[Rfam]
RNA sequence: CGAUAAGCGGUAGAUCUGUCUCGUAUAUAUUCAGGAAUAUGGCCUGAACGUUUCUACCCAGCCACCGUAAAUGGCCGGACUACGAGCAUAGAAGUCGCCGGU
Numbered sequence: 001c002g003a004u005a006a007g008c009g010g011u012a013g014a015u016c017u018g019u020c021u022c023g024u025a026u027a028u029a030u031u032c033a034g035g036a037a038u039a040u041g042g043c044c045u046g047a048a049c050g051u052u053u054c055u056a057c058c059c060a061g062c063c064a065c066c067g068u069a070a071a072u073g074g075c076c077g078g079a080c081u082a083c084g085a086g087c088a089u090a091g092a093a094g095u096c097g098c099c100g101g102u
Stems, first nucleotide, its partner, number of pairs: 020086006030048006058078002061075004
Purine riboswitch aptamer: a 102-nucleotide RNA sequence from Desmospora activa. About the family: Riboswitches are metabolite binding domains within certain messenger RNAs that serve as precision sensors for their corresponding targets. NCBI's taxonomy places the organism under Bacteria, Bacilli, Caryophanales, Desmospora, Desmospora activa.